Annotation
MIR7502 microRNA precursor family: a 147-nucleotide RNA sequence from Gossypium mustelinum. The family has 6 seed sequences and 74,505 matches in Rfam 15.1. It scores 74 bits against the family's covariance model.

RNA sequence: UGUUAAAAUUUCUAUCCAUUUUUACUAUUAAAAAUUAGUCAUUGUAUGUCAGCAUGAAGUAUAUGUGGCACGCCAUGCAUAGCUGUAUGGGUUAUUUCAUCAGCCACACGAAUUUUUAACAGUAAAAAUAGAUAGAAAUUUGAAAUA
Dot-bracket structure: .(((.(((((((((((.(((((((((.((((((((............................................................................)))))))).))))))))).)))))))))))..))).